[Rfam]
RNA sequence: UCUCCUUGAGGGGCCUCUGCCUCUAUCCAGGAUUAUCUUUUUAUGACCAGGAGGCUGAGGUCCCUUACAGGCGGC
Number, nucleotide and partner (000 for none) at each position: 001u074002c073003u000004c071005c070006u069007u000008g066009a065010g064011g063012g062013g061014c060015c059016u058017c057018u000019g055020c054021c053022u052023c050024u049025a000026u000027c000028c045029a044030g000031g042032a041033u000034u000035a000036u000037c000038u000039u000040u000041u032042u031043a000044u029045g028046a000047c000048c000049a024050g023051g000052a022053g021054g020055c019056u000057g017058a016059g015060g014061u013062c012063c011064c010065u009066u008067a000068c000069a006070g005071g004072c000073g002074g001075c000

Rfam assigns this 75-nucleotide RNA from Rattus norvegicus to the family "mir-665 microRNA precursor family". The family's consensus secondary structure was predicted with RNAalifold. The family has 9 seed sequences and 112 matches in Rfam 15.1. The organism belongs to Rattus, within Eukaryota. Its family is annotated with miRNA-mediated post-transcriptional gene silencing and RISC complex in the Gene Ontology.